[Rfam]
RNA: mir-5928 microRNA precursor family
RNA sequence: GGCACAAACUGGAGGUAGAGUAGAUUAUUAUGGUCAGCUGACCCUACUAAUCUACUCAACUUCAAAUUUGAGCUC
Numbered sequence: 001g002g003c004a005c006a007a008a009c010u011g012g013a014g015g016u017a018g019a020g021u022a023g024a025u026u027a028u029u030a031u032g033g034u035c036a037g038c039u040g041a042c043c044c045u046a047c048u049a050a051u052c053u054a055c056u057c058a059a060c061u062u063c064a065a066a067u068u069u070g071a072g073c074u075c
Base pairs, nucleotide, nucleotide: 001074002073003072005070006069007068008067012063013062014061015060016059018057019056020055021054022053023052025050026049027048029046030045032043033042034041035040